[Rfam]
RNA sequence: GUACGAGGGUCAUCGUCAGAAGUCUCGUUUUAUUCUGUGGGAUUUUUCUGAAACAACACCCUUGGAGA
Numbered sequence: 001g002u003a004c005g006a007g008g009g010u011c012a013u014c015g016u017c018a019g020a021a022g023u024c025u026c027g028u029u030u031u032a033u034u035c036u037g038u039g040g041g042a043u044u045u046u047u048c049u050g051a052a053a054c055a056a057c058a059c060c061c062u063u064g065g066a067g068a
Stems, first nucleotide, its partner, number of pairs: 004064006016051004022044001023042004
RNA: Trypanosomatid snoRNA TB8Cs4H2